[Rfam]
Rfam assigns this 207-nucleotide RNA from Streptococcus ovuberis to the family "FMN riboswitch aptamer (RFN element)". The organism belongs to Streptococcus, within Bacteria. The RFN element is a highly conserved domain that is found frequently in the 5'-untranslated regions of prokaryotic mRNAs that encode for flavin mononucleotide (FMN) biosynthesis and transport proteins. This element is a metabolite-dependent riboswitch that directly binds FMN in the absence of proteins. In Bacillus subtilis, the riboswitch most likely controls gene expression by causing premature transcription termination within the 5' untranslated region of the ribDEAHT operon and precluding access to the ribosome-binding site of ypaA mRNA.The FMN riboswitch structure, reported in present an FMN-bound six-stem junction, adopts a butterfly-like scaffold, stapled together by opposingly directed but nearly identically folded peripheral domains.
RNA sequence: AGGGGUCUUCAGGGCAGGGUGAAAUUCCCGACCGGCGGUGACUUUUUUGGGAUUCUAUUAGGUGGCAUUUGGUUUGUCUCAAUAUCCUUUGAGCAGUAUCUUGAAUGCUUUAGCCACAAUAGUCUCAUUUAAAAGAAGUCCGCGAGCGCAAGCUGAUGUGGUGUGAUUCCACAACCGACAGUAGAGUCUGGAUGGGAGAAGACGGAG
Numbered sequence: 001a002g003g004g005g006u007c008u009u010c011a012g013g014g015c016a017g018g019g020u021g022a023a024a025u026u027c028c029c030g031a032c033c034g035g036c037g038g039u040g041a042c043u044u045u046u047u048u049g050g051g052a053u054u055c056u057a058u059u060a061g062g063u064g065g066c067a068u069u070u071g072g073u074u075u076g077u078c079u080c081a082a083u084a085u086c087c088u089u090u091g092a093g094c095a096g097u098a099u100c101u102u103g104a105a106u107g108c109u110u111u112a113g114c115c116a117c118a119a120u121a122g123u124c125u126c127a128u129u130u131a132a133a134a135g136a137a138g139u140c141c142g143c144g145a146g147c148g149c150a151a152g153c154u155g156a157u158g159u160g161g162u163g164u165g166a167u168u169c170c171a172c173a174a175c176c177g178a179c180a181g182u183a184g185a186g187u188c189u190g191g192a193u194g195g196g197a198g199a200a201g202a203c204g205g206a207g
Stems, first nucleotide, its partner, number of pairs: 005203006017029003031187002033177002035143004146153002157173005179190003